Y RNA: a 101-nucleotide RNA sequence from Python bivittatus.
RNA sequence: GGCUGGUCCAAUUGCAGUGGUGCUGAUAAUGAAUGGAUCACCAUCAGUGACAGGUUUCUUUGUUCUUUCUCCAUCCCAGUGCUCCACUUGACUAGUCAUUC
Numbered sequence: 001g002g003c004u005g006g007u008c009c010a011a012u013u014g015c016a017g018u019g020g021u022g023c024u025g026a027u028a029a030u031g032a033a034u035g036g037a038u039c040a041c042c043a044u045c046a047g048u049g050a051c052a053g054g055u056u057u058c059u060u061u062g063u064u065c066u067u068u069c070u071c072c073a074u075c076c077c078a079g080u081g082c083u084c085c086a087c088u089u090g091a092c093u094a095g096u097c098a099u100u101c
Base pairs, nucleotide, nucleotide: 001097002096003095004094005093006092007091008090010089011088014085016080018078019077020076022075028064029063030062032060033059
For this family Rfam cites "Conserved features of Y RNAs: a comparison of experimentally derived secondary structures" (Teunissen et al., Nucleic Acids Res, 2000). The family's consensus secondary structure is taken from published work.